[Rfam]
RNA sequence: CUCGUUCAUCCAAACAUUGAUGCGGGCAGUUUGCUCCAUCAGUAUGCGGACGGAAGUAGGAAUAAGCGCACUAGGCAACUAUUUGCUAUUAGCCGCCAAUUAUUCUGAAGGAACGCGCC
Numbered sequence: 001c002u003c004g005u006u007c008a009u010c011c012a013a014a015c016a017u018u019g020a021u022g023c024g025g026g027c028a029g030u031u032u033g034c035u036c037c038a039u040c041a042g043u044a045u046g047c048g049g050a051c052g053g054a055a056g057u058a059g060g061a062a063u064a065a066g067c068g069c070a071c072u073a074g075g076c077a078a079c080u081a082u083u084u085g086c087u088a089u090u091a092g093c094c095g096c097c098a099a100u101u102a103u104u105c106u107g108a109a110g111g112a113a114c115g116c117g118c119c
Stems, first nucleotide, its partner, number of pairs: 003115005009050003053116001059106007
The family of this 119-nucleotide RNA sequence from Romeriopsis navalis is "Glutamine riboswitch aptamer (glnA leader)". Rfam links the family to the GO term glutamine binding. A search with the family's covariance model found it, with a score of 37 bits.